RNA: Archaeal small subunit ribosomal RNA, nucleotides 940 to 1457
RNA sequence: UGGCGGGGGAGCACACAAGGGGUGGAGGCUGCGGUUCAAUUCGACUCAACGCGGGGAACCUUACCAGAGGCGACAGCAGAAUGAAGGUCAGGUUGAAGUCCUUACCAGACAAGCUGAGAAGUAGUGCAUGGCCGUCGUCAGUUCGUGCCGUGAGGUGUCGUCUUAAGUGACGUAACGAACAAGACCCAUACCUUAUGUUGCCACCCGACUCUGUCGGAGCACUCAUAAGGGACCGCUGGCGAUAAGCCAGAGGAAGGUGUGGUCGACGGCAGGUCCGUAUGCCCUGAAUCCUCUGGGUAACACGCGGCCUACAAUGGAUGGUACAAUGGGAUGCAACUCCGAAAGGAGGAGCUAAUCCUUCAAAACCAUUCCUGGUCCGGAUCGAGGGCUGCAACUCGCCCUCGUGAAGCCGAAAUCCCUAGUAGUCGCUGGUUAGCAUGUUUGGAAGUCGCCGCGAAAGCGGUUGCGCUUCCGGGCCUAAAAUCUAGCGGCGAAUAAGUUCCUGCUCCUUGCACACA
Numbered sequence: 001u002g003g004c005g006g007g008g009g010a011g012c013a014c015a016c017a018a019g020g021g022g023u024g025g026a027g028g029c030u031g032c033g034g035u036u037c038a039a040u041u042c043g044a045c046u047c048a049a050c051g052c053g054g055g056g057a058a059c060c061u062u063a064c065c066a067g068a069g070g071c072g073a074c075a076g077c078a079g080a081a082u083g084a085a086g087g088u089c090a091g092g093u094u095g096a097a098g099u100c101c102u103u104a105c106c107a108g109a110c111a112a113g114c115u116g117a118g119a120a121g122u123a124g125u126g127c128a129u130g131g132c133c134g135u136c137g138u139c140a141g142u143u144c145g146u147g148c149c150g151u152g153a154g155g156u157g158u159c160g161u162c163u164u165a166a167g168u169g170a171c172g173u174a175a176c177g178a179a180c181a182a183g184a185c186c187c188a189u190a191c192c193u194u195a196u197g198u199u200g201c202c203a204c205c206c207g208a209c210u211c212u213g214u215c216g217g218a219g220c221a222c223u224c225a226u227a228a229g230g231g232a233c234c235g236c237u238g239g240c241g242a243u244a245a246g247c248c249a250g251a252g253g254a255a256g257g258u259g260u261g262g263u264c265g266a267c268g269g270c271a272g273g274u275c276c277g278u279a280u281g282c283c284c285u286g287a288a289u290c291c292u293c294u295g296g297g298u299a300a301c302a303c304g305c306g307g308c309c310u311a312c313a314a315u316g317g318a319u320g321g322u323a324c325a326a327u328g329g330g331a332u333g334c335a336a337c338u339c340c341g342a343a344a345g346g347a348g349g350a351g352c353u354a355a356u357c358c359u360u361c362a363a364a365a366c367c368a369u370u371c372c373u374g375g376u377c378c379g380g381a382u383c384g385a386g387g388g389c390u391g392c393a394a395c396u397c398g399c400c401c402u403c404g405u406g407a408a409g410c411c412g413a414a415a416u417c418c419c420u421a422g423u424a425g426u427c428g429c430u431g432g433u434u435a436g437c438a439u440g441u442u443u444g445g446a447a448g449u450c451g452c453c454g455c456g457a458a459a460g461c462g463g464u465u466g467c468g469c470u471u472c473c474g475g476g477c478c479u480a481a482a483a484u485c486u487a488g489c490g491g492c493g494a495a496u497a498a499g500u501u502c503c504u505g506c507u508c509c510u511u512g513c514a515c516a517c518a
Base pairs, nucleotide, nucleotide: 001516002515003513004512005511007510008509009508010507011506012505013504015500016499019419020418021417022416023415024312026310027309028308029307030306031305032304033303034301035300040055041054042053043052064296065295066294067293068292069291070290074116075115076114077113079110086106087105088104090102091101092100120285121284124282125281126280129279130278131274132273133272134270135269136268137267141180142179143178144177145176146175147156148155149154159172160171161170162169186262187261188260189259191230192229193228194227195226196225197224201219205217206216207215208214209213233253234252236250237249238248239247240246316371317370318369319368320367321366322365328359329358330357333352334351337348338347339346340345378409383404384403385402386401387400388399389398425492426491427490428489429488430487431486432485